RNA: SAM riboswitch aptamer (S box leader)
Organism: Catalinimonas alkaloidigena
RNA sequence: GCUUAUCCAGAAAGACUGAGGGAAUGGGCCCUGCGACGUCUUGGCAACCGGAUUUAUCGAUCAAGGUGCCACUUCCCACCCCGGUCAAAGGGGAAAGAUAAAGC
Numbered sequence: 001g002c003u004u005a006u007c008c009a010g011a012a013a014g015a016c017u018g019a020g021g022g023a024a025u026g027g028g029c030c031c032u033g034c035g036a037c038g039u040c041u042u043g044g045c046a047a048c049c050g051g052a053u054u055u056a057u058c059g060a061u062c063a064a065g066g067u068g069c070c071a072c073u074u075c076c077c078a079c080c081c082c083g084g085u086c087a088a089a090g091g092g093g094a095a096a097g098a099u100a101a102a103g104c
Stems, first nucleotide, its partner, number of pairs: 001104002003101005012042005020031003025078004043070004048066002050062002053059001074096001079093004